[Rfam]
RNA sequence: CACACGUGAGGCAUGGGAUUGUCCGGGAGAAAUCCGGAUCGUUCCGCCCGGUGGCAUUUCCCAGGAAGUGCUGUUCGCCUUGCGGAGGUUCAACCGGAAAAGGAUAACUA
Numbered sequence: 001c002a003c004a005c006g007u008g009a010g011g012c013a014u015g016g017g018a019u020u021g022u023c024c025g026g027g028a029g030a031a032a033u034c035c036g037g038a039u040c041g042u043u044c045c046g047c048c049c050g051g052u053g054g055c056a057u058u059u060c061c062c063a064g065g066a067a068g069u070g071c072u073g074u075u076c077g078c079c080u081u082g083c084g085g086a087g088g089u090u091c092a093a094c095c096g097g098a099a100a101a102g103g104a105u106a107a108c109u110a
Stems, first nucleotide, its partner, number of pairs: 001087001003085001005084007016045002024036002027034001053072008
RNA: rpsB sRNA